Shown here is an 80-nucleotide RNA sequence from Trichonephila clavata, a member of the family "mir-184 microRNA precursor family". The match comes from Rfam's covariance-model search (64 bits). Its family is annotated with RISC complex and gene silencing by miRNA in the Gene Ontology. The literature on the family includes a 2005 paper in Genes Dev by Chen et al., "The developmental miRNA profiles of zebrafish as determined by small RNA cloning". Lineage of the source: Eukaryota > Araneae > Araneomorphae > Araneoidea > Trichonephila.

[Rfam]
RNA sequence: GUUUCCACGUUUCCUUAUCAUUCGACUGUCCAGACUGUAUAUGAGCACUGGACGGAGAACUGAUAAGGGCUUGUGGCAAC
Numbered sequence: 001g002u003u004u005c006c007a008c009g010u011u012u013c014c015u016u017a018u019c020a021u022u023c024g025a026c027u028g029u030c031c032a033g034a035c036u037g038u039a040u041a042u043g044a045g046c047a048c049u050g051g052a053c054g055g056a057g058a059a060c061u062g063a064u065a066a067g068g069g070c071u072u073g074u075g076g077c078a079a080c
Base pairs, nucleotide, nucleotide: 012069013068014067015066016065017064018063019062020061021059022058023057026055027054030051031050